The record is a 337-nucleotide part of an RNA from Mucilaginibacter segetis, which matches "Bacterial large subunit ribosomal RNA" in Rfam. The match comes from Rfam's covariance-model search (2725 bits). The source organism's lineage runs through Bacteria, Pseudomonadati, Bacteroidota, Sphingobacteriaceae and Mucilaginibacter. The base pairs follow the family's consensus structure, which is taken from published work.
[Rfam]
RNA sequence: CGAGUGAAUCAUGGCUAAGGAACUCGGCAAAAUGGCCCUGUAACUUCGGGAGAAGGGGCGCUGACAGCAAUGUCAGCCGCAGUGAAAAGGCCCAGGCGACUGUUUAACAAAAACACAUGGCUUUGCAAAAUCGAAAGAUGACGUAUAAGGCCUGACACCUGCCCGGUGCCGGAAGGUUAAGAGGGGAUGUUAGUCGCAAGGCGAAGCAUUGAAUCGAAGCCCCGGUAAACGGCGGCCGUAACUAUAACGGUCCUAAGGUAGCGAAAUUCCUUGUCGGGUAAGUUCCGACCUGCACGAAUGGUGUAACGAUCUGGGCGCUGUCUCAGCCAUGAGCUCG
Numbered sequence: 001c002g003a004g005u006g007a008a009u010c011a012u013g014g015c016u017a018a019g020g021a022a023c024u025c026g027g028c029a030a031a032a033u034g035g036c037c038c039u040g041u042a043a044c045u046u047c048g049g050g051a052g053a054a055g056g057g058g059c060g061c062u063g064a065c066a067g068c069a070a071u072g073u074c075a076g077c078c079g080c081a082g083u084g085a086a087a088a089g090g091c092c093c094a095g096g097c098g099a100c101u102g103u104u105u106a107a108c109a110a111a112a113a114c115a116c117a118u119g120g121c122u123u124u125g126c127a128a129a130a131u132c133g134a135a136a137g138a139u140g141a142c143g144u145a146u147a148a149g150g151c152c153u154g155a156c157a158c159c160u161g162c163c164c165g166g167u168g169c170c171g172g173a174a175g176g177u178u179a180a181g182a183g184g185g186g187a188u189g190u191u192a193g194u195c196g197c198a199a200g201g202c203g204a205a206g207c208a209u210u211g212a213a214u215c216g217a218a219g220c221c222c223c224g225g226u227a228a229a230c231g232g233c234g235g236c237c238g239u240a241a242c243u244a245u246a247a248c249g250g251u252c253c254u255a256a257g258g259u260a261g262c263g264a265a266a267u268u269c270c271u272u273g274u275c276g277g278g279u280a281a282g283u284u285c286c287g288a289c290c291u292g293c294a295c296g297a298a299u300g301g302u303g304u305a306a307c308g309a310u311c312u313g314g315g316c317g318c319u320g321u322c323u324c325a326g327c328c329a330u331g332a333g334c335u336c337g
Stems, first nucleotide, its partner, number of pairs: 001337004009332008018323003035059005044049001060077007078082001090316007097308002101115003119152007126143001130139003156303004161233003166230002168226005175221003181215002186210005193202002234252006253257001263290001273289006